[Rfam]
RNA: Lysine riboswitch aptamer
RNA sequence: UAGUUUUGAUGAGGCGCAUCAAUCAUUAGUAAAUAUUAGUAGAACCUGUCUGCUAGCAGCUAAUUUUGAAAGGGUGAGAUGCCGAAACAGUUAUAAUAGCAGCUUAUAACACGUUGGACUUUAUGGUUAAGAGCUAAGAGUCUGUCAUUAUUUUAAAAUAAUGGAGUGCAUCACUUGUA
Numbered sequence: 001u002a003g004u005u006u007u008g009a010u011g012a013g014g015c016g017c018a019u020c021a022a023u024c025a026u027u028a029g030u031a032a033a034u035a036u037u038a039g040u041a042g043a044a045c046c047u048g049u050c051u052g053c054u055a056g057c058a059g060c061u062a063a064u065u066u067u068g069a070a071a072g073g074g075u076g077a078g079a080u081g082c083c084g085a086a087a088c089a090g091u092u093a094u095a096a097u098a099g100c101a102g103c104u105u106a107u108a109a110c111a112c113g114u115u116g117g118a119c120u121u122u123a124u125g126g127u128u129a130a131g132a133g134c135u136a137a138g139a140g141u142c143u144g145u146c147a148u149u150a151u152u153u154u155a156a157a158a159u160a161a162u163g164g165a166g167u168g169c170a171u172c173a174c175u176u177g178u179a
Stems, first nucleotide, its partner, number of pairs: 007173005016082005024074001032067002035064005086115003090110007116143007124136004145164007